Notes
Group II catalytic intron D1-D4-4: a 138-nucleotide RNA from Alkaliphilus pronyensis. A search with the family's covariance model found it, with a score of 86 bits. Pairs were carried over by alignment from the consensus structure. Rfam describes the family as follows. Group II introns are found in rRNA, tRNA and mRNA of organelles in fungi, plants and protists, and also in mRNA in bacteria. The family has 90 seed sequences and 840 matches in Rfam 15.1. On this family, see Bonen and Vogel, Trends Genet 2001: "The ins and outs of group II introns". The organism belongs to Alkaliphilus, within Bacteria.
[Rfam]
RNA sequence: UUGUCGGUGAAAGUCCGACCUGCGUAAUUGCCAAUGAGCGCAGUAGAUAUAUGACUAUACAAUGGUGAGAACUGUUGUAUGAAGCGUCAUGAAAAUGGGCACAUAGUGGCUCUAUCGACCAUGCAGACCGCAACAUAA
Numbered sequence: 001u002u003g004u005c006g007g008u009g010a011a012a013g014u015c016c017g018a019c020c021u022g023c024g025u026a027a028u029u030g031c032c033a034a035u036g037a038g039c040g041c042a043g044u045a046g047a048u049a050u051a052u053g054a055c056u057a058u059a060c061a062a063u064g065g066u067g068a069g070a071a072c073u074g075u076u077g078u079a080u081g082a083a084g085c086g087u088c089a090u091g092a093a094a095a096u097g098g099g100c101a102c103a104u105a106g107u108g109g110c111u112c113u114a115u116c117g118a119c120c121a122u123g124c125a126g127a128c129c130g131c132a133a134c135a136u137a138a
Base pairs, nucleotide, nucleotide: 020043021042022041023040024039051090052089053088054087055086056081057080058079059078060077061076065072066071097112098111099110100109116130117129